The family of this 68-nucleotide RNA from Poecilia reticulata is "mir-8/mir-141/mir-200 microRNA precursor family". Lineage of the source: Eukaryota > Actinopterygii > Neopterygii > Ovalentaria > Poecilia. Clan: mir-8 microRNA precursor clan. Rfam 15.1 lists 2,669 matches to the family in 883 species.
[Rfam]
RNA sequence: AUCUCCAUCUUACGAGGCAGCAUUGGAUAUCACUCCUUUCUCUAAUACUGCCUGGUAAUGAUGAUGAU
Numbered sequence: 001a002u003c004u005c006c007a008u009c010u011u012a013c014g015a016g017g018c019a020g021c022a023u024u025g026g027a028u029a030u031c032a033c034u035c036c037u038u039u040c041u042c043u044a045a046u047a048c049u050g051c052c053u054g055g056u057a058a059u060g061a062u063g064a065u066g067a068u
Base pairs, nucleotide, nucleotide: 002067003066006063007062008061009060010058011057012056013055015053016052017051018050019049020048022046023045024044025043026042027041